[Rfam]
A member of the RNA family "Small nucleolar RNA Z247" from Populus alba, 139 nucleotides long.
Pairs were carried over by alignment from the consensus structure, which was predicted with PFOLD.
Rfam links the family to the GO terms RNA processing and nucleolus.
A reference for the family is Chen et al. (2003), "The high diversity of snoRNAs in plants: identification and comparative study of 120 snoRNA genes from Oryza sativa", Nucleic Acids Res.
The organism belongs to Populus, within Eukaryota.
It scores 46 bits against the family's covariance model.
Rfam 15.1 lists 7,071 matches to the family in 142 species.
The family's RNA type in Rfam is C/D-box small nucleolar RNA.
RNA sequence: CCUCUCAACUCUGAUGAAAUUCUUACUUAUAUCCUUGCUGGUCUUGGUCAGGAGUAUGACUCCUUAGUCUCUACAAUUACCUCUCGUUCUGAUGUUGUCACCUUGGAGGAACUUUAUUCUUUGCUUCUUAUUACUGAGU
Numbered sequence: 001c002c003u004c005u006c007a008a009c010u011c012u013g014a015u016g017a018a019a020u021u022c023u024u025a026c027u028u029a030u031a032u033c034c035u036u037g038c039u040g041g042u043c044u045u046g047g048u049c050a051g052g053a054g055u056a057u058g059a060c061u062c063c064u065u066a067g068u069c070u071c072u073a074c075a076a077u078u079a080c081c082u083c084u085c086g087u088u089c090u091g092a093u094g095u096u097g098u099c100a101c102c103u104u105g106g107a108g109g110a111a112c113u114u115u116a117u118u119c120u121u122u123g124c125u126u127c128u129u130a131u132u133a134c135u136g137a138g139u
Stems, first nucleotide, its partner, number of pairs: 004138004088107005
Dot-bracket structure: ...((((................................................................................(((((..........)))))...........................)))).